Rfam assigns this 295-nucleotide RNA from Trichogramma brassicae to the family "Metazoan signal recognition particle RNA". A search with the family's covariance model found it, with a score of 245 bits. NCBI's taxonomy places the organism under Eukaryota, Opisthokonta, Insecta, Hymenoptera, Trichogramma. Rfam links the family to the GO terms signal recognition particle, endoplasmic reticulum targeting and SRP-dependent cotranslational protein targeting to membrane, signal sequence recognition. Rfam 15.1 lists 383,523 matches to the family in 1,221 species. On this family, see Wild et al., Curr Opin Struct Biol 2002: "Towards the structure of the mammalian signal recognition particle". The signal recognition particle (SRP) is a universally conserved ribonucleoprotein. It is involved in the co-translational targeting of proteins to membranes. The eukaryotic SRP consists of a 300-nucleotide 7S RNA and six proteins: SRPs 72, 68, 54, 19, 14, and 9.

RNA sequence: GCUGGGAGCGUAGCGGCUUCUGUAAUCCAGCUAUUGGAGGCUAGUUGUGGUGGAGGAUCUGAGGCUGGGGCUCACUGCUGGUACGGCUCCACGUCGACUGGGCGUCCGCACUAAGCUCGCCAUCAAUAUGGGCACCUCGGAGGAGUCCGAGGUGGCCAGGUUAGUUAAGGAGAGGCGAACCGGGCCAGGGGGGUAACCCAGCAGCCAAAAGUCUCCGUGGCGAGCAGUAGUGGGAUCGCGCCCGGGAGUGGAACCGUAUCGGUAGCCUGGUCGAUAUGAUUCGACCCACAACUUU
Numbered sequence: 001g002c003u004g005g006g007a008g009c010g011u012a013g014c015g016g017c018u019u020c021u022g023u024a025a026u027c028c029a030g031c032u033a034u035u036g037g038a039g040g041c042u043a044g045u046u047g048u049g050g051u052g053g054a055g056g057a058u059c060u061g062a063g064g065c066u067g068g069g070g071c072u073c074a075c076u077g078c079u080g081g082u083a084c085g086g087c088u089c090c091a092c093g094u095c096g097a098c099u100g101g102g103c104g105u106c107c108g109c110a111c112u113a114a115g116c117u118c119g120c121c122a123u124c125a126a127u128a129u130g131g132g133c134a135c136c137u138c139g140g141a142g143g144a145g146u147c148c149g150a151g152g153u154g155g156c157c158a159g160g161u162u163a164g165u166u167a168a169g170g171a172g173a174g175g176c177g178a179a180c181c182g183g184g185c186c187a188g189g190g191g192g193g194u195a196a197c198c199c200a201g202c203a204g205c206c207a208a209a210a211g212u213c214u215c216c217g218u219g220g221c222g223a224g225c226a227g228u229a230g231u232g233g234g235a236u237c238g239c240g241c242c243c244g245g246g247a248g249u250g251g252a253a254c255c256g257u258a259u260c261g262g263u264a265g266c267c268u269g270g271u272c273g274a275u276a277u278g279a280u281u282c283g284a285c286c287c288a289c290a291a292c293u294u295u
Stems, first nucleotide, its partner, number of pairs: 001041003004021006026038003043293008055282005063272007075265012088252005094246001098245008106234002109232005115225009125162003129158003133154009165169001172215005183206003190199003